[Rfam]
RNA sequence: CCCGUCUCGCUGGGGUGUUCCGGAUGCAAGCCGGAGCUGAGAGUUACCCAUAGAACCUGAACCAGGUCAUGCUGGCGGAGGAAGUUCGAGAUGGCAAGGUCG
Number, nucleotide and partner (000 for none) at each position: 001c000002c000003c000004g000005u000006c090007u089008c088009g087010c000011u050012g049013g048014g047015g000016u000017g037018u036019u035020c034021c033022g032023g031024a000025u000026g000027c000028a000029a000030g000031c023032c022033g021034g020035a019036g018037c017038u000039g000040a000041g000042a000043g000044u000045u000046a000047c014048c013049c012050a011051u000052a000053g000054a000055a000056c081057c080058u079059g000060a000061a000062c075063c074064a073065g072066g000067u000068c000069a000070u000071g000072c065073u064074g063075g062076c000077g000078g000079a058080g057081g056082a000083a000084g000085u000086u000087c009088g008089a007090g006091a000092u000093g000094g000095c000096a000097a000098g000099g000100u000101c000102g000